[Rfam]
This 122-nucleotide RNA sequence from Gossypium australe belongs to the Rfam family "MIR7504 microRNA precursor family". Gene Ontology terms of the family: RISC complex and miRNA-mediated post-transcriptional gene silencing. Taxonomically the source falls in Gossypium (Eukaryota, Gunneridae, Pentapetalae, Malvales).

RNA sequence: AAUAGAAGAAUGACAAAUCAGAUUUUCCUCCUGAUUUUUAGUAUUUUUAGUUGAAUUUGAAUUUUCUCAGGAGUAAAAAACUGAAUAUCAAGACGAAAAAUCUAAUUUGUCAUUCUCCUAUU
Numbered sequence: 001a002a003u004a005g006a007a008g009a010a011u012g013a014c015a016a017a018u019c020a021g022a023u024u025u026u027c028c029u030c031c032u033g034a035u036u037u038u039u040a041g042u043a044u045u046u047u048u049a050g051u052u053g054a055a056u057u058u059g060a061a062u063u064u065u066c067u068c069a070g071g072a073g074u075a076a077a078a079a080a081c082u083g084a085a086u087a088u089c090a091a092g093a094c095g096a097a098a099a100a101u102c103u104a105a106u107u108u109g110u111c112a113u114u115c116u117c118c119u120a121u122u
Base pairs, nucleotide, nucleotide: 001122002121003120004119005118007116008115009114010113011112012111013110014109015108016107017106018105020103021102022101023099024098025097026096027095029093030092032090033089034088035087037085038084040082041081044078045077046076047075